RNA sequence: GUAGAUUUAGUUUAACCAAGACAUUAGAUUGUGAUUCUAAAAAUAGAGGUUAAACCCCUCUAAUCCACC
Numbered sequence: 001g002u003a004g005a006u007u008u009a010g011u012u013u014a015a016c017c018a019a020g021a022c023a024u025u026a027g028a029u030u031g032u033g034a035u036u037c038u039a040a041a042a043a044u045a046g047a048g049g050u051u052a053a054a055c056c057c058c059u060c061u062a063a064u065c066c067a068c069c
Stems, first nucleotide, its partner, number of pairs: 001068002004065004010022004024040005045061005
The family of this 69-nucleotide sequence is "tRNA". It is annotated as a transfer RNA. Rfam links the family to the GO term triplet codon-amino acid adaptor activity. The family's consensus secondary structure is taken from published work. It is one of the family's seed sequences.